The record is an 80-nucleotide RNA sequence from Flavobacterium psychrophilum, which matches "Flavo-1 RNA" in Rfam. It is annotated as a small RNA. The organism belongs to Flavobacterium psychrophilum, within Bacteria.
RNA sequence: UUUUAACCCCGGUUGUAGCGGAAAUCCUUUGCUUUUUUUCUUUAGAAAAGCAAAGAUUGAAGUGCAAAACGGGAAUAUGG
Dot-bracket structure: ........(((.((...((...((((..((((((((((.....)))))))))).))))...))...)).)))........
Numbered sequence: 001u002u003u004u005a006a007c008c009c010c011g012g013u014u015g016u017a018g019c020g021g022a023a024a025u026c027c028u029u030u031g032c033u034u035u036u037u038u039u040c041u042u043u044a045g046a047a048a049a050g051c052a053a054a055g056a057u058u059g060a061a062g063u064g065c066a067a068a069a070c071g072g073g074a075a076u077a078u079g080g
Stems, first nucleotide, its partner, number of pairs: 009072003013068002018063002023058004029053010